[Rfam]
RNA sequence: AAAUCUUCUCAGCCUUUUGGCUAAGAUCAAGUAUAGGAUCUGUUAUUACCAGUUUAAUAUCUGAUAUGGUCUCUAUCUGAGCACAAUCUAUUAAAUGGAUUUGGGAGCUAGGAGAUGGAAUGCGAGCUUGCUCUGUUCACUCUGUACAUAGAUCUGGUAUUGCAGUGCUUCUGGGAAUAGUGCGUCCUUC
Number, nucleotide and partner (000 for none) at each position: 001a000002a000003a000004u000005c000006u000007u026008c025009u024010c000011a022012g021013c020014c019015u000016u000017u000018u000019g014020g013021c012022u011023a000024a009025g008026a007027u000028c000029a000030a000031g000032u000033a000034u000035a000036g000037g000038a000039u000040c000041u000042g000043u000044u000045a000046u000047u066048a065049c000050c063051a062052g061053u000054u000055u000056a000057a000058u000059a000060u000061c052062u051063g050064a000065u048066a047067u000068g084069g000070u000071c081072u080073c079074u000075a000076u000077c000078u000079g073080a072081g071082c000083a000084c068085a000086a000087u000088c000089u000090a000091u000092u000093a000094a000095a000096u000097g000098g000099a000100u000101u000102u000103g000104g000105g000106a000107g000108c000109u000110a000111g143112g142113a141114g140115a000116u000117g137118g136119a000120a000121u000122g000123c000124g133125a132126g131127c000128u000129u000130g000131c126132u125133c124134u000135g000136u118137u117138c000139a000140c114141u113142c112143u111144g000145u000146a000147c182148a181149u180150a000151g178152a000153u175154c174155u173156g172157g171158u000159a000160u000161u000162g000163c000164a000165g000166u000167g000168c000169u000170u000171c157172u156173g155174g154175g153176a000177a000178u151179a000180g149181u148182g147183c000184g000185u000186c000187c000188u000189u000190c000
Background:
Rfam assigns this 190-nucleotide RNA sequence from Nannospalax galili to the family "U2 spliceosomal RNA". It scores 121 bits against the family's covariance model. Rfam classes the family as a spliceosomal small nuclear RNA.